[Rfam]
RNA: SAH (S-adenosyl-L-homocysteine) riboswitch aptamer
Organism: Usitatibacter palustris
RNA sequence: UCUCCUGAGGAGCGUUGCAACGGACGCCAUGUCCGCCAGGCUCAGGGAAUCUCCACUGCAACGGCGCUCGUUAACC
Numbered sequence: 001u002c003u004c005c006u007g008a009g010g011a012g013c014g015u016u017g018c019a020a021c022g023g024a025c026g027c028c029a030u031g032u033c034c035g036c037c038a039g040g041c042u043c044a045g046g047g048a049a050u051c052u053c054c055a056c057u058g059c060a061a062c063g064g065c066g067c068u069c070g071u072u073a074a075c076c
Stems, first nucleotide, its partner, number of pairs: 003047006021035006